[Rfam]
RNA: RNase MRP
Organism: Didymodactylos carnosus
RNA sequence: CUGUAUUCUGCAAGUUUGCUGUCUGAGCUACAUAACGAGUGUUUAAUUACUCAUAUUUGCUCAGGGGAAAAUCCCCGAACACGAAGUAGAAACUACUAAUCCAUAAUAUGGAUUUAUCAUUCUCGUAUGCCUAAAAUGAACCCAAUCAGCCAAGAGAAGAUCGUAAAAACGUCUUUGAGCUAUUUAGGUGAGUUUGAUAUCGUUGAAAGAAAAGUCAUGCAAACAAACUAUUUGAAUAAAAUGGUUGUACUCGAGGGGGUUUAUGAGCAGGAUACA
Number, nucleotide and partner (000 for none) at each position: 001c000002u276003g275004u274005a273006u272007u271008c270009u269010g268011c267012a000013a000014g224015u223016u222017u221018g220019c219020u000021g000022u065023c064024u063025g062026a061027g060028c059029u000030a000031c000032a000033u000034a000035a000036c000037g052038a051039g050040u049041g048042u000043u000044u000045a000046a000047u000048u041049a040050c039051u038052c037053a000054u000055a000056u000057u000058u000059g028060c027061u026062c025063a024064g023065g022066g000067g000068a000069a262070a261071a260072u000073c259074c258075c257076c256077g000078a000079a000080c000081a000082c000083g000084a000085a097086g096087u095088a094089g000090a000091a000092a000093c000094u088095a087096c086097u085098a114099a000100u112101c111102c110103a000104u000105a000106a000107u000108a000109u000110g102111g101112a100113u000114u098115u000116a000117u196118c000119a000120u000121u000122c000123u000124c192125g000126u190127a189128u188129g000130c000131c000132u000133a000134a000135a000136a000137u186138g185139a184140a000141c000142c000143c000144a000145a000146u000147c000148a181149g180150c179151c000152a000153a000154g000155a000156g000157a000158a000159g000160a000161u000162c000163g000164u000165a175166a174167a000168a172169a000170c000171g000172u168173c000174u166175u165176u000177g000178a000179g150180c149181u148182a000183u000184u139185u138186a137187g000188g128189u127190g126191a000192g124193u000194u000195u000196g117197a000198u000199a000200u000201c000202g000203u000204u000205g000206a000207a000208a000209g000210a000211a000212a000213a000214g000215u000216c000217a000218u000219g019220c018221a017222a016223a015224c014225a000226a246227a245228c244229u243230a242231u241232u000233u000234g000235a000236a000237u000238a000239a000240a000241a231242u230243g229244g228245u227246u226247g000248u000249a000250c000251u000252c000253g000254a000255g000256g076257g075258g074259g073260u071261u070262u069263a000264u000265g000266a000267g011268c010269a009270g008271g007272a006273u005274a004275c003276a002